RNA sequence: CUGUUCUGUUACAGAGAUGUGGCAGAAUAUUUCUCCUCUAUUUCUCCUUUGUAGACUUGGCGCAUACUCCUAACGGGGUGUGCGCAUUUUU
Numbered sequence: 001c002u003g004u005u006c007u008g009u010u011a012c013a014g015a016g017a018u019g020u021g022g023c024a025g026a027a028u029a030u031u032u033c034u035c036c037u038c039u040a041u042u043u044c045u046c047c048u049u050u051g052u053a054g055a056c057u058u059g060g061c062g063c064a065u066a067c068u069c070c071u072a073a074c075g076g077g078g079u080g081u082g083c084g085c086a087u088u089u090u091u
Stems, first nucleotide, its partner, number of pairs: 003028009037055005060085010